The record is a 283-nucleotide RNA from Ophiocordyceps unilateralis, which matches "Fungal signal recognition particle RNA" in Rfam. The family's consensus secondary structure is taken from published work. It is annotated as a non-coding RNA gene. Rfam 15.1 lists 748 matches to the family in 741 species. Rfam links the family to the GO terms signal recognition particle, plasma membrane targeting, SRP-dependent cotranslational protein targeting to membrane, signal sequence recognition and signal recognition particle, endoplasmic reticulum targeting.
RNA sequence: GACUGUAAUGGUCCAAAGGACGAAGCCUCUCAACGCCCUCGGCAAAUCCCCGGCUGCCCAUUCCGUCAGAUCCCUCCCGCCAGGCGCCCAGUUCGAACGCCGCGGUGGCCGCCCUAGACUCGCGCUGGUAACACGUGAAUGGUCUAGCGGCCUUAAGGUACGAGGGUGAUGCUUCAGGGAGGUUUCACUCUGCAGAGGCACCCUCCCCGUCGCGUGGCGAAUUGGAUAACGACCGCGGGAGGAUGUGGGCGACGGGAUAGAGGCGGAGAAAUCAACGUCCAUU
Numbered sequence: 001g002a003c004u005g006u007a008a009u010g011g012u013c014c015a016a017a018g019g020a021c022g023a024a025g026c027c028u029c030u031c032a033a034c035g036c037c038c039u040c041g042g043c044a045a046a047u048c049c050c051c052g053g054c055u056g057c058c059c060a061u062u063c064c065g066u067c068a069g070a071u072c073c074c075u076c077c078c079g080c081c082a083g084g085c086g087c088c089c090a091g092u093u094c095g096a097a098c099g100c101c102g103c104g105g106u107g108g109c110c111g112c113c114c115u116a117g118a119c120u121c122g123c124g125c126u127g128g129u130a131a132c133a134c135g136u137g138a139a140u141g142g143u144c145u146a147g148c149g150g151c152c153u154u155a156a157g158g159u160a161c162g163a164g165g166g167u168g169a170u171g172c173u174u175c176a177g178g179g180a181g182g183u184u185u186c187a188c189u190c191u192g193c194a195g196a197g198g199c200a201c202c203c204u205c206c207c208c209g210u211c212g213c214g215u216g217g218c219g220a221a222u223u224g225g226a227u228a229a230c231g232a233c234c235g236c237g238g239g240a241g242g243a244u245g246u247g248g249g250c251g252a253c254g255g256g257a258u259a260g261a262g263g264c265g266g267a268g269a270a271a272u273c274a275a276c277g278u279c280c281a282u283u
Stems, first nucleotide, its partner, number of pairs: 001013003018280005028269004034265004038260002047257004053253001055251007075240005081235001083233001085231002088225008097215004102210004112149001114147005120138005126133002152158002162205006172197003179190003

The organism belongs to Ophiocordyceps, within Eukaryota.